[Rfam]
RNA sequence: UGCAGUGAUGGUGUAAUUUGCGUCCUACCUGGUGUUCAGUGAUAGUUGCCUGCUAUCGUUAAGCUAAUGCCACAGGUUGACGACAAAAAAUAUCUGAGCA
Numbered sequence: 001u002g003c004a005g006u007g008a009u010g011g012u013g014u015a016a017u018u019u020g021c022g023u024c025c026u027a028c029c030u031g032g033u034g035u036u037c038a039g040u041g042a043u044a045g046u047u048g049c050c051u052g053c054u055a056u057c058g059u060u061a062a063g064c065u066a067a068u069g070c071c072a073c074a075g076g077u078u079g080a081c082g083a084c085a086a087a088a089a090a091u092a093u094c095u096g097a098g099c100a
Stems, first nucleotide, its partner, number of pairs: 001100003021082004030072005039064002041057005